RNA: Small nucleolar RNA R160
RNA sequence: AGUGAUAUGAGGAGACUGAAUCAUCUGAAAGUUUUCAUGUGGAUAACACAUAUAUGGUCUUCAAAGUUCUCUGAUCUCU
Numbered sequence: 001a002g003u004g005a006u007a008u009g010a011g012g013a014g015a016c017u018g019a020a021u022c023a024u025c026u027g028a029a030a031g032u033u034u035u036c037a038u039g040u041g042g043a044u045a046a047c048a049c050a051u052a053u054a055u056g057g058u059c060u061u062c063a064a065a066g067u068u069c070u071c072u073g074a075u076c077u078c079u
Base pairs, nucleotide, nucleotide: 001079002078004076005075